RNA: putative aminoglycoside riboswitch / attI site
RNA sequence: GGAGCAGCAACGAUGUUACGCAGCAGGGCAGUCGCCCUAAAACAAAGUUAUGCAGCCAAAUCCCAAC
Dot-bracket structure: .....(.((....)).)..((.((.((((....))))(((.......))).)).))....(...)..